[Rfam]
RNA sequence: CGUAUGGUGUCUGGCGUUCAGCGACCAGAUAGCGAUGCGGCCUAACUUGAGGU
Dot-bracket structure: (((((.((..(((((((...))).))))...)).)))))..............
RNA: L31-Gammaproteobacteria ribosomal protein leader